Shown here is a 104-nucleotide RNA from Nocardia panacis, a member of the family "mraW RNA". The base pairs follow the family's consensus structure, which is taken from published work. The source organism's lineage runs through Bacteria, Bacillati, Actinomycetota, Nocardiaceae and Nocardia.
RNA sequence: CGCGGCGGGUGCCCCGCGGCCUCUGCCCGGACCGGACCCUGACGUACUUCCCCGACGCCAGGUGCCGACUUCGGUCAGAGACCACGUGGCACCCGCUGCCGCGA
Numbered sequence: 001c002g003c004g005g006c007g008g009g010u011g012c013c014c015c016g017c018g019g020c021c022u023c024u025g026c027c028c029g030g031a032c033c034g035g036a037c038c039c040u041g042a043c044g045u046a047c048u049u050c051c052c053c054g055a056c057g058c059c060a061g062g063u064g065c066c067g068a069c070u071u072c073g074g075u076c077a078g079a080g081a082c083c084a085c086g087u088g089g090c091a092c093c094c095g096c097u098g099c100c101g102c103g104a
Stems, first nucleotide, its partner, number of pairs: 010091004015086002018083002021080005027074005033067003038062004043057003